This 76-nucleotide RNA from Galemys pyrenaicus belongs to the Rfam family "Small nucleolar RNA SNORD19". The match comes from Rfam's covariance-model search (87 bits). Rfam 15.1 lists 1,431 matches to the family in 609 species. A reference for the family is Huttenhofer et al. (2001), "RNomics: an experimental approach that identifies 201 candidates for novel, small, non-messenger RNAs in mouse", EMBO J. The source organism's lineage runs through Eukaryota, Bilateria, Tetrapoda, Eulipotyphla and Galemys.
[Rfam]
RNA sequence: GAGGGAUGAGGAAGACGUCUAAACAGUCUGAUUGUCAUGAAGACUGAUAAGAUCCAACUCUGACCUCAACACAGCC
Numbered sequence: 001g002a003g004g005g006a007u008g009a010g011g012a013a014g015a016c017g018u019c020u021a022a023a024c025a026g027u028c029u030g031a032u033u034g035u036c037a038u039g040a041a042g043a044c045u046g047a048u049a050a051g052a053u054c055c056a057a058c059u060c061u062g063a064c065c066u067c068a069a070c071a072c073a074g075c076c
Stems, first nucleotide, its partner, number of pairs: 001067004
Gene Ontology terms of the family: RNA processing and nucleolus.